[Rfam]
RNA sequence: CUCUAACGAGCCAGAAUUAAUCUAUUCCCAUAGAUUAAGAGUGCAUUUGUAGGGUUCAGCUUUAUUCCUGCGAGGGUGGUGACACCUUUCAAAAAUUAAAAUGAAGUGAGAAGGCUUAGUAGGGAAACCGAAAAGCUUUUUUACUA
Numbered sequence: 001c002u003c004u005a006a007c008g009a010g011c012c013a014g015a016a017u018u019a020a021u022c023u024a025u026u027c028c029c030a031u032a033g034a035u036u037a038a039g040a041g042u043g044c045a046u047u048u049g050u051a052g053g054g055u056u057c058a059g060c061u062u063u064a065u066u067c068c069u070g071c072g073a074g075g076g077u078g079g080u081g082a083c084a085c086c087u088u089u090c091a092a093a094a095a096u097u098a099a100a101a102u103g104a105a106g107u108g109a110g111a112a113g114g115c116u117u118a119g120u121a122g123g124g125a126a127a128c129c130g131a132a133a134a135g136c137u138u139u140u141u142u143a144c145u146a
Base pairs, nucleotide, nucleotide: 003052004051005050010044011043017038018037019036020035021034022033023032024031025030072089073088074087075086076085077084078083105145106144107143108142109141110140111139112138113137114136115135116134123129

The record is a 146-nucleotide RNA sequence, which matches "RT-14 RNA" in Rfam. The family's RNA type in Rfam is small RNA.